[Rfam]
RNA sequence: CGACCCCAUGUUAAGUGAGGCUACCCGGCUGAGUUUAAGCAUAUAAAAAAGCUGGAGGAGAAGGAACUUACAAGGAUUCCCUUAGUAACGGCGGAAUAAACGGACCAGCCCGCUUGAAAUCGGGCAGCACCAAGCCUGAAUUCAGUCCUGGAGAGGCGCCCCUCAGCGACGGAUCGAUCAAGUCCCCGAAAGGGCGCUGGGGAGGGUGAGAGCCCCUGCUCGCCCGUACCGUCAAGUACACGAGGCCACAACGAAGUCGGGUUGUUUGGGAAUGCAGCCCAAAUUGGGUGGUAAAUUCCGUCCAAGGCUAAAUAAUUGCGAGAGACCGAUAGCGAACAAGUACCGCGAGGGAAAGAUGAAAAGGACUUUGAAAAGAGAGUCAAAGAGUGCUUGAAAUUGUUUGAGGGAAG
Numbered sequence: 001c002g003a004c005c006c007c008a009u010g011u012u013a014a015g016u017g018a019g020g021c022u023a024c025c026c027g028g029c030u031g032a033g034u035u036u037a038a039g040c041a042u043a044u045a046a047a048a049a050a051g052c053u054g055g056a057g058g059a060g061a062a063g064g065a066a067c068u069u070a071c072a073a074g075g076a077u078u079c080c081c082u083u084a085g086u087a088a089c090g091g092c093g094g095a096a097u098a099a100a101c102g103g104a105c106c107a108g109c110c111c112g113c114u115u116g117a118a119a120u121c122g123g124g125c126a127g128c129a130c131c132a133a134g135c136c137u138g139a140a141u142u143c144a145g146u147c148c149u150g151g152a153g154a155g156g157c158g159c160c161c162c163u164c165a166g167c168g169a170c171g172g173a174u175c176g177a178u179c180a181a182g183u184c185c186c187c188g189a190a191a192g193g194g195c196g197c198u199g200g201g202g203a204g205g206g207u208g209a210g211a212g213c214c215c216c217u218g219c220u221c222g223c224c225c226g227u228a229c230c231g232u233c234a235a236g237u238a239c240a241c242g243a244g245g246c247c248a249c250a251a252c253g254a255a256g257u258c259g260g261g262u263u264g265u266u267u268g269g270g271a272a273u274g275c276a277g278c279c280c281a282a283a284u285u286g287g288g289u290g291g292u293a294a295a296u297u298c299c300g301u302c303c304a305a306g307g308c309u310a311a312a313u314a315a316u317u318g319c320g321a322g323a324g325a326c327c328g329a330u331a332g333c334g335a336a337c338a339a340g341u342a343c344c345g346c347g348a349g350g351g352a353a354a355g356a357u358g359a360a361a362a363g364g365a366c367u368u369u370g371a372a373a374a375g376a377g378a379g380u381c382a383a384a385g386a387g388u389g390c391u392u393g394a395a396a397u398u399g400u401u402u403g404a405g406g407g408a409a410g
Stems, first nucleotide, its partner, number of pairs: 024057001025055002028052003036043002067074002078104003082100001089094001107309004112147001114145005120139006155247003161242001168233004173227001176223001182195001184194003198202001205215002259280007286303005343350002366377004
Rfam assigns this 410-nucleotide part of an RNA from Vanilla planifolia to the family "Eukaryotic large subunit ribosomal RNA". The family's consensus secondary structure is taken from published work.